[Rfam]
RNA sequence: UUUUGGGCGGGGGUCAAGAGCAAUAACGGAGAAUGUCUGUGAUGAACCAUUUUUCAUUAUUGCUCCUGACCUCCUCUCAUUUGCUCCCCGCG
Numbered sequence: 001u002u003u004u005g006g007g008c009g010g011g012g013g014u015c016a017a018g019a020g021c022a023a024u025a026a027c028g029g030a031g032a033a034u035g036u037c038u039g040u041g042a043u044g045a046a047c048c049a050u051u052u053u054u055c056a057u058u059a060u061u062g063c064u065c066c067u068g069a070c071c072u073c074c075u076c077u078c079a080u081u082u083g084c085u086c087c088c089c090g091c092g
Stems, first nucleotide, its partner, number of pairs: 005078003009074008018065009028055008036046001038044002
This 92-nucleotide RNA from Loxodonta africana belongs to the Rfam family "mir-335 microRNA precursor family". The family's consensus secondary structure was predicted with RNAalifold. On this family, see Ahn et al., Mol Hum Reprod 2010: "MicroRNA transcriptome in the newborn mouse ovaries determined by massive parallel sequencing". The organism belongs to Loxodonta, within Eukaryota.